[Rfam]
This 85-nucleotide RNA from Nicotiana tabacum belongs to the Rfam family "Small nucleolar RNA R44/J54/Z268 family". Lineage of the source: Eukaryota > Pentapetalae > asterids > Nicotianeae > Nicotiana. Rfam 15.1 lists 1,168 matches to the family in 228 species. The base pairs follow the family's consensus structure, which was predicted with PFOLD. A search with the family's covariance model found it, with a score of 74 bits.
RNA sequence: CGUGCAAAUGACGAUAAAACAGACAGGGACAUCAGAACCCAGAAGGGUAUUGAUGAUUUAUCGAUGGGAAUCUCUCUGAUGCAUU
Numbered sequence: 001c002g003u004g005c006a007a008a009u010g011a012c013g014a015u016a017a018a019a020c021a022g023a024c025a026g027g028g029a030c031a032u033c034a035g036a037a038c039c040c041a042g043a044a045g046g047g048u049a050u051u052g053a054u055g056a057u058u059u060a061u062c063g064a065u066g067g068g069a070a071u072c073u074c075u076c077u078g079a080u081g082c083a084u085u
Base pairs, nucleotide, nucleotide: 002084003083004082005081006080